[Rfam]
RNA sequence: CGAGCCAUCCGGGUGAUCGCGGCAGUCUUGAGCUGUCGAGGAAAGUCCGGGCUCCACAGAGCAGGGUGGUGGGUAACGCCCACCCGGGGUGACCCGCGGGACAGUGCCACAGAAAACAAACUGCCGGUUUUCGGGCCGGUGAGGGUGAAACGGCGGGGUAAGGGCCCACCGCGUCAUCGGUGACGGUGACGGCACGGCAAACCCCACUUGGAGCAAGGCCAAGAAGACCGUGAGGUCGCGGACGUGUUCGAGGGCUGCUCGCCUGAGCGUCCGGGUAGGCUGCGCAGCCGAAAGGCUGGAGGAUGCCAGCAAUGGCGUUCACAGAUGGAUGAUCACCGGCCCUGAGGGGCCACAGAACCCGGCUUACAGGAUGGCUCGUCCC
Numbered sequence: 001c002g003a004g005c006c007a008u009c010c011g012g013g014u015g016a017u018c019g020c021g022g023c024a025g026u027c028u029u030g031a032g033c034u035g036u037c038g039a040g041g042a043a044a045g046u047c048c049g050g051g052c053u054c055c056a057c058a059g060a061g062c063a064g065g066g067u068g069g070u071g072g073g074u075a076a077c078g079c080c081c082a083c084c085c086g087g088g089g090u091g092a093c094c095c096g097c098g099g100g101a102c103a104g105u106g107c108c109a110c111a112g113a114a115a116a117c118a119a120a121c122u123g124c125c126g127g128u129u130u131u132c133g134g135g136c137c138g139g140u141g142a143g144g145g146u147g148a149a150a151c152g153g154c155g156g157g158g159u160a161a162g163g164g165c166c167c168a169c170c171g172c173g174u175c176a177u178c179g180g181u182g183a184c185g186g187u188g189a190c191g192g193c194a195c196g197g198c199a200a201a202c203c204c205c206a207c208u209u210g211g212a213g214c215a216a217g218g219c220c221a222a223g224a225a226g227a228c229c230g231u232g233a234g235g236u237c238g239c240g241g242a243c244g245u246g247u248u249c250g251a252g253g254g255c256u257g258c259u260c261g262c263c264u265g266a267g268c269g270u271c272c273g274g275g276u277a278g279g280c281u282g283c284g285c286a287g288c289c290g291a292a293a294g295g296c297u298g299g300a301g302g303a304u305g306c307c308a309g310c311a312a313u314g315g316c317g318u319u320c321a322c323a324g325a326u327g328g329a330u331g332a333u334c335a336c337c338g339g340c341c342c343u344g345a346g347g348g349g350c351c352a353c354a355g356a357a358c359c360c361g362g363c364u365u366a367c368a369g370g371a372u373g374g375c376u377c378g379u380c381c382c
Stems, first nucleotide, its partner, number of pairs: 001378010011367001012337007020038007043365003047362005052213004059260004064209005069083005084098001085096004099204002104202002106198003121144002123140007152170002155167003171193001172191008217281004240272006252264004301320008